[Rfam]
RNA sequence: CACCGCCUGUCACAUCCUGGGAAUUGGUUGUGUCUGAAUAAGGUUCAAACGUCAUUGAUUGAUAAGGCUUGCAAUGCUCUUGCUGAGCAAGGCUUGCACGCAAAGGCGGCUAGAUCUUACACGGCACGGUCAGUAACUGAGAUGAAGUCAUAACAAGGUGGCCGUAGGGGAACCUGCGGCCGGAAUGACCCUA
Numbered sequence: 001c002a003c004c005g006c007c008u009g010u011c012a013c014a015u016c017c018u019g020g021g022a023a024u025u026g027g028u029u030g031u032g033u034c035u036g037a038a039u040a041a042g043g044u045u046c047a048a049a050c051g052u053c054a055u056u057g058a059u060u061g062a063u064a065a066g067g068c069u070u071g072c073a074a075u076g077c078u079c080u081u082g083c084u085g086a087g088c089a090a091g092g093c094u095u096g097c098a099c100g101c102a103a104a105g106g107c108g109g110c111u112a113g114a115u116c117u118u119a120c121a122c123g124g125c126a127c128g129g130u131c132a133g134u135a136a137c138u139g140a141g142a143u144g145a146a147g148u149c150a151u152a153a154c155a156a157g158g159u160g161g162c163c164g165u166a167g168g169g170g171a172a173c174c175u176g177c178g179g180c181c182g183g184a185a186u187g188a189c190c191c192u193a
Base pairs, nucleotide, nucleotide: 003157005154008150009149011147013144014143015142016141018139019138020137023134024133025132026131027130028129029128030127031126032125033124034123036122159182160181161180162179163178164177165176166175167174168173
RNA: Archaeal small subunit ribosomal RNA, nucleotides 2684 to 2876